Overview
The record is an 80-nucleotide sequence from Salvator merianae, which matches "mir-208 microRNA precursor family" in Rfam. The literature on the family includes a 2003 paper in RNA by Lagos-Quintana et al., "New microRNAs from mouse and human".
Nucleotides: 080
Base pairs, nucleotide, nucleotide: 003076004075005074006073008071011068012067013066014065015064016063017062018061020059023056024055027052028051029050030049031048032047
Number, partner (000 for none) and nucleotide at each position: 001000u002000c003076u004075g005074a006073c007000g008071g009000c010000a011068a012067a013066g014065c015064u016063u017062u018061u019000g020059g021000c022000u023056c024055g025000g026000g027052u028051u029050a030049u031048a032047u033000u034000u035000u036000a037000a038000a039000a040000u041000g042000g043000c044000a045000g046000c047032g048031u049030a050029u051028a052027a053000g054000a055024c056023g057000a058000g059020c060000a061018a062017a063016a064015a065014g066013c067012u068011u069000g070000u071008u072000g073006g074005u075004u076003a077000g078000g079000a080000g